[Rfam]
RNA sequence: UGACGGGGGCCCGCACAAGCGGUGGAGCAUGUGGUUUAAUUCGAUGAUACGCGAGGAACCUUACCAAGGCUUAAAUGUAGAUUGACGUACCUAGAGACAGGUAUUUCUUCGGACAAUUUACAAGGUGCUGCAUGGUUGUCGUCAGCUCGUGCCGUGAGGUGUCAGGUUAAGUCCUAUAACGAGCGCAACCCCUGUUGUUAGUUACCAGCAUGUAAAGAUGGGGACUCUAACAAGACUGCCGGUGCAAACCGUGAGGAAGGUGGGGAUGACGUCAAAUCAUCACGGCCCUUACGUCUUGGGCUACACACGUGCUACAAUGGCCGGUACAGUGAGCAGCCACUUGGCAACAAGGAGCGAAUCUUAAAAACCGGUCACAGUUCGGAUCGGAGUCUGCAACUCGACUCCGUGAAGCUGGAAUCGCUAGUAAUCGGAUAUCAGCCAUGAUCCGGUGAAUACGUUCCCGGGCCUUGUACACACCGCCCGUCAAGCCAUGGAAGCUGGGGGUACCUGAAGUCGGUGACCGUAAGGAGCUGCCUAGGGUAAAACUGGUAACUGGGGCUAAGUCGUAACAAGGUAGCCGUACCGGAAGGUGCGGCUGGA
Numbered sequence: 001u002g003a004c005g006g007g008g009g010c011c012c013g014c015a016c017a018a019g020c021g022g023u024g025g026a027g028c029a030u031g032u033g034g035u036u037u038a039a040u041u042c043g044a045u046g047a048u049a050c051g052c053g054a055g056g057a058a059c060c061u062u063a064c065c066a067a068g069g070c071u072u073a074a075a076u077g078u079a080g081a082u083u084g085a086c087g088u089a090c091c092u093a094g095a096g097a098c099a100g101g102u103a104u105u106u107c108u109u110c111g112g113a114c115a116a117u118u119u120a121c122a123a124g125g126u127g128c129u130g131c132a133u134g135g136u137u138g139u140c141g142u143c144a145g146c147u148c149g150u151g152c153c154g155u156g157a158g159g160u161g162u163c164a165g166g167u168u169a170a171g172u173c174c175u176a177u178a179a180c181g182a183g184c185g186c187a188a189c190c191c192c193u194g195u196u197g198u199u200a201g202u203u204a205c206c207a208g209c210a211u212g213u214a215a216a217g218a219u220g221g222g223g224a225c226u227c228u229a230a231c232a233a234g235a236c237u238g239c240c241g242g243u244g245c246a247a248a249c250c251g252u253g254a255g256g257a258a259g260g261u262g263g264g265g266a267u268g269a270c271g272u273c274a275a276a277u278c279a280u281c282a283c284g285g286c287c288c289u290u291a292c293g294u295c296u297u298g299g300g301c302u303a304c305a306c307a308c309g310u311g312c313u314a315c316a317a318u319g320g321c322c323g324g325u326a327c328a329g330u331g332a333g334c335a336g337c338c339a340c341u342u343g344g345c346a347a348c349a350a351g352g353a354g355c356g357a358a359u360c361u362u363a364a365a366a367a368c369c370g371g372u373c374a375c376a377g378u379u380c381g382g383a384u385c386g387g388a389g390u391c392u393g394c395a396a397c398u399c400g401a402c403u404c405c406g407u408g409a410a411g412c413u414g415g416a417a418u419c420g421c422u423a424g425u426a427a428u429c430g431g432a433u434a435u436c437a438g439c440c441a442u443g444a445u446c447c448g449g450u451g452a453a454u455a456c457g458u459u460c461c462c463g464g465g466c467c468u469u470g471u472a473c474a475c476a477c478c479g480c481c482c483g484u485c486a487a488g489c490c491a492u493g494g495a496a497g498c499u500g501g502g503g504g505u506a507c508c509u510g511a512a513g514u515c516g517g518u519g520a521c522c523g524u525a526a527g528g529a530g531c532u533g534c535c536u537a538g539g540g541u542a543a544a545a546c547u548g549g550u551a552a553c554u555g556g557g558g559c560u561a562a563g564u565c566g567u568a569a570c571a572a573g574g575u576a577g578c579c580g581u582a583c584c585g586g587a588a589g590g591u592g593c594g595g596c597u598g599g600a
Stems, first nucleotide, its partner, number of pairs: 001474002003471003007468007015458002019421005024315001026313008034304002040055004064299007076122003080118005087104006106113002124288002127286004133282002135277003138273001140271002145184006151160003164175003190265004195233007205222002209220003236256002239253001240251004319373007331362003336355002341350003380411001385406007427450007477573001479570001482566002487560004492555003497550005505542004513535001515533004521528002575598010
RNA: Bacterial small subunit ribosomal RNA, nucleotides 914 to 1513
Organism: Leptobacterium flavescens